[Rfam]
serC leader: a 53-nucleotide RNA sequence from Acidisoma silvae.
The match comes from Rfam's covariance-model search (52 bits).
The pairing is the family consensus, mapped onto this sequence.
NCBI's taxonomy places the organism under Bacteria, Pseudomonadati, Pseudomonadota, Acetobacterales, Acidisoma.
This family is a putative regulatory RNA structure that is found upstream of the serC-serA operon in some alpha-proteobacteria. The final stem of the structure overlaps the ribosome binding site of the serC reading frame.
RNA sequence: CGGCGGGUCACGCCCCCCCACCGGGGCGCUUCUCUUCUGAAAGGGAGAGCCAA
Numbered sequence: 001c002g003g004c005g006g007g008u009c010a011c012g013c014c015c016c017c018c019c020a021c022c023g024g025g026g027c028g029c030u031u032c033u034c035u036u037c038u039g040a041a042a043g044g045g046a047g048a049g050c051c052a053a
Stems, first nucleotide, its partner, number of pairs: 011028006033048006